A member of the RNA family "Glutamine riboswitch aptamer (glnA leader)" from Leptolyngbyaceae cyanobacterium JSC-12, 83 nucleotides long. The organism belongs to Leptolyngbyaceae, within Bacteria. The literature on the family includes a 2011 paper in RNA Biol by Ames and Breaker, "Bacterial aptamers that selectively bind glutamine".

[Rfam]
RNA sequence: AUCGUUCAUCUCAUUUGUGAUUCAAGGCACAUUUCGCGAUCGCAAAUGAGACGGAAGUAGGGGCAUCCCCGAAGGAACGCGCC
Numbered sequence: 001a002u003c004g005u006u007c008a009u010c011u012c013a014u015u016u017g018u019g020a021u022u023c024a025a026g027g028c029a030c031a032u033u034u035c036g037c038g039a040u041c042g043c044a045a046a047u048g049a050g051a052c053g054g055a056a057g058u059a060g061g062g063g064c065a066u067c068c069c070c071g072a073a074g075g076a077a078c079g080c081g082c083c
Stems, first nucleotide, its partner, number of pairs: 003079005009051014054080001060070003